[Rfam]
RNA: SAM (S-adenosyl methionine) riboswitch aptamer
Organism: Rhodococcus sp. WMMA185
RNA sequence: GGUCACGAGUGCCAGCGUCAAGCCCCGGCUUGCUGGUCGGCAACCCUCCACUGCGGCGGGGUGCUCCGGGUGACGACCGGGCUGAGGUUCGAUACCGGACCCGGCAAGCGCGGACU
Dot-bracket structure: ((((....(.((((((....((......)).)))))))(((..(((.((.....))..))).))).........))))..((((.((((((....))))))))))...........